[Rfam]
RNA sequence: CGCUUAUAGAGAAAGAUGGAGGGACUGGACCCUGCGAAGUCUUAGCAACCUGUGCUUACAAGGUGCUACAUUCUACUUAAAACCGCUAGCCAUAAGGUUUUAAGACGGAUAAGCG
Numbered sequence: 001c002g003c004u005u006a007u008a009g010a011g012a013a014a015g016a017u018g019g020a021g022g023g024a025c026u027g028g029a030c031c032c033u034g035c036g037a038a039g040u041c042u043u044a045g046c047a048a049c050c051u052g053u054g055c056u057u058a059c060a061a062g063g064u065g066c067u068a069c070a071u072u073c074u075a076c077u078u079a080a081a082a083c084c085g086c087u088a089g090c091c092a093u094a095a096g097g098u099u100u101u102a103a104g105a106c107g108g109a110u111a112a113g114c115g
Stems, first nucleotide, its partner, number of pairs: 001115007013043005021032003026075004044067004049063002051060003071107001076104009
RNA: SAM riboswitch aptamer (S box leader)
Organism: Mucilaginibacter aquatilis